[Rfam]
RNA sequence: GGUAGUAGAAAAUAUUCAAAUGAGAACUUUGAAGGCUGAAGAAAGGAAAGGUUCCAUGUGAACGACACUUACACAUGGGUUAGUCGAUCCUAAAAGACGAUGGAAGCCCGUACGACAGCGCGCGACGCGCGAGCUUUAAAAGGGAAUCGGGUUAACAUUCCUGAACCAGGACGUGAUGGCUGAUGGCAAUGUUAGGGAGUUCAGAGACGUCAUCGAGGGCCUCAAAAAGAGUUAUCUUUUCUGUUAACAGCCCGCCCACCUUGGAAACGGCUCAGUCAAAGGUAGGGUUCAGUGUUUGGAAGAGCAACGUACGUCGCGUGGUGUCCGAUGCGCCUUCGACGACCCCUGAAAAUCCAGAGGACCGAGUGCCGCCCACGCCCGGUCGUACUUAUAACCGCAUCAGGUCUCCAAGGUAAACAACCUCUGGUCGA
Numbered sequence: 001g002g003u004a005g006u007a008g009a010a011a012a013u014a015u016u017c018a019a020a021u022g023a024g025a026a027c028u029u030u031g032a033a034g035g036c037u038g039a040a041g042a043a044a045g046g047a048a049a050g051g052u053u054c055c056a057u058g059u060g061a062a063c064g065a066c067a068c069u070u071a072c073a074c075a076u077g078g079g080u081u082a083g084u085c086g087a088u089c090c091u092a093a094a095a096g097a098c099g100a101u102g103g104a105a106g107c108c109c110g111u112a113c114g115a116c117a118g119c120g121c122g123c124g125a126c127g128c129g130c131g132a133g134c135u136u137u138a139a140a141a142g143g144g145a146a147u148c149g150g151g152u153u154a155a156c157a158u159u160c161c162u163g164a165a166c167c168a169g170g171a172c173g174u175g176a177u178g179g180c181u182g183a184u185g186g187c188a189a190u191g192u193u194a195g196g197g198a199g200u201u202c203a204g205a206g207a208c209g210u211c212a213u214c215g216a217g218g219g220c221c222u223c224a225a226a227a228a229g230a231g232u233u234a235u236c237u238u239u240u241c242u243g244u245u246a247a248c249a250g251c252c253c254g255c256c257c258a259c260c261u262u263g264g265a266a267a268c269g270g271c272u273c274a275g276u277c278a279a280a281g282g283u284a285g286g287g288u289u290c291a292g293u294g295u296u297u298g299g300a301a302g303a304g305c306a307a308c309g310u311a312c313g314u315c316g317c318g319u320g321g322u323g324u325c326c327g328a329u330g331c332g333c334c335u336u337c338g339a340c341g342a343c344c345c346c347u348g349a350a351a352a353u354c355c356a357g358a359g360g361a362c363c364g365a366g367u368g369c370c371g372c373c374c375a376c377g378c379c380c381g382g383u384c385g386u387a388c389u390u391a392u393a394a395c396c397g398c399a400u401c402a403g404g405u406c407u408c409c410a411a412g413g414u415a416a417a418c419a420a421c422c423u424c425u426g427g428u429c430g431a
Base pairs, nucleotide, nucleotide: 015033016032017031018030019029020028034429035428036427037426045407046406049389050388054078055077056076057075058074059073064070085385086384087383089143090142094137095136097111098110102107119129120128121127147164148163149162150161151160167381169379170378172377173376174375175374177371178370182193183192184191185190200358201357204354205353209343210342211341214338215337216336217335218334219333220332222328223327225245226244228242229241230240248298249297250296252294258288259287260286261285262284263283269277270276305323306322308320309319310318395404396403411423412422413421414420
The family of this 431-nucleotide part of an RNA from Vitis vinifera is "Eukaryotic large subunit ribosomal RNA". Rfam links the family to the GO terms ribosome and structural constituent of ribosome.